A member of the RNA family "Ribosomal S15 leader" from Candidatus Hoaglandella endobia, 118 nucleotides long. The base pairs follow the family's consensus structure, which is taken from published work. It scores 81 bits against the family's covariance model. Rfam links the family to the GO term regulation of translation, ncRNA-mediated. The literature on the family includes a 1996 paper in Biochimie by Benard et al., "Pseudoknot and translational control in the expression of the S15 ribosomal protein". Rfam classes the family as a cis-regulatory leader. Rfam's curators write: The E. coli Ribosomal S15 gene 5' UTR can form two alternative structures. One that is a series of three hairpins, The other includes a pseudoknot. This structure causes translational regulation of the S15 protein. The alignment of this family contains only the final two hairpins which are conserved in other species, and also includes the complete region that forms the alternate structures. Its Rfam clan is "Ribosomal Protein S15 Leader clan".
RNA sequence: GCUGGUUGCUGCAGUUAGAGAUCAGCGACCAUCUAUUUUACAAUCAUUUUGGGGUGUUAUAAUGUCUCUAAGUGUUGAGGCGAAAGCAAAGAUUAUUUCUGAUUUCGGCUAUGAUGCC
Number, nucleotide and partner (000 for none) at each position: 001g000002c000003u000004g000005g000006u000007u027008g026009c025010u024011g023012c000013a022014g000015u000016u000017a000018g000019a000020g000021a000022u013023c011024a010025g009026c008027g007028a000029c000030c000031a000032u000033c000034u000035a000036u000037u000038u000039u000040a000041c000042a000043a000044u000045c000046a000047u000048u072049u071050u070051g069052g068053g067054g066055u000056g000057u000058u000059a000060u000061a000062a000063u000064g000065u000066c054067u053068c052069u051070a050071a049072g048073u000074g000075u000076u000077g000078a000079g000080g000081c000082g000083a000084a000085a000086g000087c000088a000089a000090a000091g000092a000093u000094u000095a000096u000097u000098u000099c000100u000101g000102a000103u000104u000105u000106c000107g000108g000109c000110u000111a000112u000113g000114a000115u000116g000117c000118c000